[Rfam]
Shown here is a 147-nucleotide sequence from Halalkalibacter wakoensis, a member of the family "FMN riboswitch aptamer (RFN element)". Pairs were carried over by alignment from the consensus structure, which is taken from published work.

RNA sequence: UGUUUCCUUCGGGGCUGGGUGGAAAUCCCGACCGGCGGUGAUGAAGCAAACGCUUCUUAGUCCGUGACCCGUUUCUUUUGAUUAAGAGCGGUGGACCUGGUGAAACUCCGGGACCGACAGUGAAAGUCUGGAUGGGAGAAGGAACGA
Numbered sequence: 001u002g003u004u005u006c007c008u009u010c011g012g013g014g015c016u017g018g019g020u021g022g023a024a025a026u027c028c029c030g031a032c033c034g035g036c037g038g039u040g041a042u043g044a045a046g047c048a049a050a051c052g053c054u055u056c057u058u059a060g061u062c063c064g065u066g067a068c069c070c071g072u073u074u075c076u077u078u079u080g081a082u083u084a085a086g087a088g089c090g091g092u093g094g095a096c097c098u099g100g101u102g103a104a105a106c107u108c109c110g111g112g113a114c115c116g117a118c119a120g121u122g123a124a125a126g127u128c129u130g131g132a133u134g135g136g137a138g139a140a141g142g143a144a145c146g147a
Base pairs, nucleotide, nucleotide: 004144005143006142007141008140009139010138017029018028019027031127032126033116034115035065036064037063038062060114061113069091070090096112097111098110099109100108118130119129120128